[Rfam]
A member of the RNA family "FMN riboswitch aptamer (RFN element)" from Bifidobacterium pullorum, 147 nucleotides long. NCBI's taxonomy places the organism under Bacteria, Actinomycetes, Bifidobacteriales, Bifidobacterium, Bifidobacterium pullorum. The RFN element is a highly conserved domain that is found frequently in the 5'-untranslated regions of prokaryotic mRNAs that encode for flavin mononucleotide (FMN) biosynthesis and transport proteins. The match comes from Rfam's covariance-model search (73 bits). The family's consensus secondary structure is taken from published work.
RNA sequence: CGCCAAGUUCAGGGAAGGUGCAAGUCCUUACUGGCGGUGACGGAGCGCGGGCCAGGCCCGCCGUCCUCCGAAGCCCGCGACCCGCGCAAGCGGCCGAUCCGGUGCGAAUCCGGGGCCAACGGUGACAGUCCGGAUGAAAGAACGGAG
Numbered sequence: 001c002g003c004c005a006a007g008u009u010c011a012g013g014g015a016a017g018g019u020g021c022a023a024g025u026c027c028u029u030a031c032u033g034g035c036g037g038u039g040a041c042g043g044a045g046c047g048c049g050g051g052c053c054a055g056g057c058c059c060g061c062c063g064u065c066c067u068c069c070g071a072a073g074c075c076c077g078c079g080a081c082c083c084g085c086g087c088a089a090g091c092g093g094c095c096g097a098u099c100c101g102g103u104g105c106g107a108a109u110c111c112g113g114g115g116c117c118a119a120c121g122g123u124g125a126c127a128g129u130c131c132g133g134a135u136g137a138a139a140g141a142a143c144g145g146a147g
Base pairs, nucleotide, nucleotide: 003147007143008142009141010140016028017027018026030129031128032118033117034078035077036076037075073116074115082093083092098114099113100112101111102110120132121131122130